[Rfam]
RNA sequence: GUAGCGCCCGUCUGUAAAGGCGGGCGAGGAUUGAAAC
Number, nucleotide and partner (000 for none) at each position: 001g000002u000003a000004g000005c026006g025007c024008c023009c022010g021011u020012c019013u018014g000015u000016a000017a000018a013019g012020g011021c010022g009023g008024g007025c006026g005027a000028g000029g000030a000031u000032u000033g000034a000035a000036a000037c000

Description: Rfam assigns this 37-nucleotide RNA from Geotalea daltonii to the family "CRISPR RNA direct repeat element". The organism belongs to Geotalea daltonii, within Bacteria.